[Rfam]
RNA sequence: GCCGCGUCUAGGCUGAUCACCGAAAAGCCGGUAUCCCCUUAGCCGGCCCGACGCGGCGCCCACCGUCACCCAAGGG
Numbered sequence: 001g002c003c004g005c006g007u008c009u010a011g012g013c014u015g016a017u018c019a020c021c022g023a024a025a026a027g028c029c030g031g032u033a034u035c036c037c038c039u040u041a042g043c044c045g046g047c048c049c050g051a052c053g054c055g056g057c058g059c060c061c062a063c064c065g066u067c068a069c070c071c072a073a074g075g076g
Base pairs, nucleotide, nucleotide: 001057002056003055004054005053006052007051008050011021012020027047028046029045030044031043036076037075038074039073040072
The family of this 76-nucleotide RNA from a Betaproteobacteria bacterium is "int-alpA RNA". NCBI's taxonomy places the organism under Bacteria, Pseudomonadati, Pseudomonadota, Betaproteobacteria. Acidobacteria (1 example), Planctomycetes (1 example), Proteobacteria. The base pairs follow the family's consensus structure, which is taken from published work. By type it is a small RNA.